[Rfam]
RNA sequence: CCAUCAUCCCCGGGGAGUCAUGUGACUGAGAGGAGCGUGUAACGCCGUUCGACCCGAUGAACCUGAUCCUGUUGACGCAGGCGGAGGGAGUGGAGCGGCAAUUUACG
Numbered sequence: 001c002c003a004u005c006a007u008c009c010c011c012g013g014g015g016a017g018u019c020a021u022g023u024g025a026c027u028g029a030g031a032g033g034a035g036c037g038u039g040u041a042a043c044g045c046c047g048u049u050c051g052a053c054c055c056g057a058u059g060a061a062c063c064u065g066a067u068c069c070u071g072u073u074g075a076c077g078c079a080g081g082c083g084g085a086g087g088g089a090g091u092g093g094a095g096c097g098g099c100a101a102u103u104u105a106c107g
Stems, first nucleotide, its partner, number of pairs: 007094003011056004017026003033050005062087003068081004
RNA: TPP riboswitch aptamer (THI element)